[Rfam]
RNA sequence: UGGCGCUGCUAGGGGAGCCGUUCCAGGCUGAGAGGGCGGCCAUCGACAGAUGGCUUGCCGACCCUGAAAACCUGAUCUGGGUAAUACCAGCGGAGGGAAGCGGCGAGCGCAUCCG
Numbered sequence: 001u002g003g004c005g006c007u008g009c010u011a012g013g014g015g016a017g018c019c020g021u022u023c024c025a026g027g028c029u030g031a032g033a034g035g036g037c038g039g040c041c042a043u044c045g046a047c048a049g050a051u052g053g054c055u056u057g058c059c060g061a062c063c064c065u066g067a068a069a070a071c072c073u074g075a076u077c078u079g080g081g082u083a084a085u086a087c088c089a090g091c092g093g094a095g096g097g098a099a100g101c102g103g104c105g106a107g108c109g110c111a112u113c114c115g
Base pairs, nucleotide, nucleotide: 006103007102008101009100010099011065012064013063014062017028018027019026035059036058037057038056039055071096072095073094077090078089079088080087
RNA: TPP riboswitch aptamer (THI element)